[Rfam]
RNA sequence: GGUGACGUGUCUGAGCGGCCUAAGGAGCACGAUUGGAAGUCGUGUGUGCGUGCAAGCGCACCGUGGGUUCAAAUCCCACCGUCACCG
Number, nucleotide and partner (000 for none) at each position: 001g086002g085003u084004g083005a082006c081007g080008u000009g000010u026011c025012u024013g000014a000015g000016c000017g000018g000019c000020c000021u000022a000023a000024g012025g011026a010027g000028c044029a043030c042031g041032a040033u000034u000035g000036g000037a000038a000039g000040u032041c031042g030043u029044g028045u000046g000047u000048g000049c000050g000051u000052g000053c000054a000055a000056g000057c000058g000059c000060a000061c000062c000063g079064u078065g077066g076067g075068u000069u000070c000071a000072a000073a000074u000075c067076c066077c065078a064079c063080c007081g006082u005083c004084a003085c002086c001087g000

tRNA: an 87-nucleotide sequence from Microbacterium schleiferi.
The base pairs follow the family's consensus structure, which is taken from published work.